[Rfam]
Source information: This 92-nucleotide RNA from Cavia porcellus belongs to the Rfam family "Small nucleolar RNA SNORD116". Its family is annotated with nucleolus and RNA processing in the Gene Ontology. It is annotated as a C/D-box small nucleolar RNA.
RNA sequence: GGAUCGAUGAUGACACUCAUAAAUGCAUUCCUUGGAAAGCUGAACAAAAUGAGUGAAAAACCUAUACCGUCAUUCUCAUCGAACUGAGGUCC
Numbered sequence: 001g002g003a004u005c006g007a008u009g010a011u012g013a014c015a016c017u018c019a020u021a022a023a024u025g026c027a028u029u030c031c032u033u034g035g036a037a038a039g040c041u042g043a044a045c046a047a048a049a050u051g052a053g054u055g056a057a058a059a060a061c062c063u064a065u066a067c068c069g070u071c072a073u074u075c076u077c078a079u080c081g082a083a084c085u086g087a088g089g090u091c092c
Stems, first nucleotide, its partner, number of pairs: 001092005026055005032047003